[Rfam]
RNA sequence: GGCGAGGUAGCUCAGGUGGUUAGAGCGUUGGAUUCAUAACCCAAAGGUCGGGGGUUCAACUCCCCCCCUCGCUA
Numbered sequence: 001g002g003c004g005a006g007g008u009a010g011c012u013c014a015g016g017u018g019g020u021u022a023g024a025g026c027g028u029u030g031g032a033u034u035c036a037u038a039a040c041c042c043a044a045a046g047g048u049c050g051g052g053g054g055u056u057c058a059a060c061u062c063c064c065c066c067c068c069u070c071g072c073u074a
Base pairs, nucleotide, nucleotide: 001073002072003071004070005069006068007067010026011025012024013023028044029043030042031041050066051065052064053063054062